The family of this 58-nucleotide sequence from Streptococcus henryi is "Lacto-rpoB RNA".
The source organism's lineage runs through Bacteria, Bacilli, Lactobacillales, Streptococcaceae and Streptococcus.
Rfam classes the family as a cis-regulatory element.
The base pairs follow the family's consensus structure, which is taken from published work.
[Rfam]
RNA sequence: AUUUGUCGUCUUCUUUGGUUGAAAUAUUGUCCAACCAGGGUUUACAGCAGUUAAAUCA
Numbered sequence: 001a002u003u004u005g006u007c008g009u010c011u012u013c014u015u016u017g018g019u020u021g022a023a024a025u026a027u028u029g030u031c032c033a034a035c036c037a038g039g040g041u042u043u044a045c046a047g048c049a050g051u052u053a054a055a056u057c058a
Stems, first nucleotide, its partner, number of pairs: 008045002013040009